[Rfam]
This 275-nucleotide sequence from Microtus ochrogaster belongs to the Rfam family "Mason-Pfizer monkey virus packaging signal".
RNA sequence: UGGCUCCCGGCAUGGGGCUCAAGUACAGGGGAUUCACUGAAGAAUACUGUUCAGAGAGGCCAGCAUAAAGUUAAGUAUAAUUAAGAGGAAGAGAAACACAGGAGCUUACUGUGUCUUCUGAACCUCGGUAAUUAUAACAGAGAUUAUGAGACAAGGAAUUAGUCAGUAUGAAAUGUUUAUUGGAGGAUUAAGGCAAGCAUUAAAGACCAGAACGGUAAAGGUUAAAAUUAAGCAGUUAUGUGAAUUUUUUGAUUACAUUAAGGAUGUUUGUCCUU
Numbered sequence: 001u002g003g004c005u006c007c008c009g010g011c012a013u014g015g016g017g018c019u020c021a022a023g024u025a026c027a028g029g030g031g032a033u034u035c036a037c038u039g040a041a042g043a044a045u046a047c048u049g050u051u052c053a054g055a056g057a058g059g060c061c062a063g064c065a066u067a068a069a070g071u072u073a074a075g076u077a078u079a080a081u082u083a084a085g086a087g088g089a090a091g092a093g094a095a096a097c098a099c100a101g102g103a104g105c106u107u108a109c110u111g112u113g114u115c116u117u118c119u120g121a122a123c124c125u126c127g128g129u130a131a132u133u134a135u136a137a138c139a140g141a142g143a144u145u146a147u148g149a150g151a152c153a154a155g156g157a158a159u160u161a162g163u164c165a166g167u168a169u170g171a172a173a174u175g176u177u178u179a180u181u182g183g184a185g186g187a188u189u190a191a192g193g194c195a196a197g198c199a200u201u202a203a204a205g206a207c208c209a210g211a212a213c214g215g216u217a218a219a220g221g222u223u224a225a226a227a228u229u230a231a232g233c234a235g236u237u238a239u240g241u242g243a244a245u246u247u248u249u250u251g252a253u254u255a256c257a258u259u260a261a262g263g264a265u266g267u268u269u270g271u272c273c274u275u
Stems, first nucleotide, its partner, number of pairs: 006030003013025002035049002038046001085126003092119001093117002097113005132154002135151001138150001159202001161200001162198002210250003214246003219237002222234001260275006
From the family's description: This family represents a group of sequences that are related to the Mason-Pfizer monkey virus (MPMV) packaging signal. The packaging signal is located in the 5' UTR and is required for specific RNA encapsidation. The family's consensus secondary structure was predicted with PFOLD.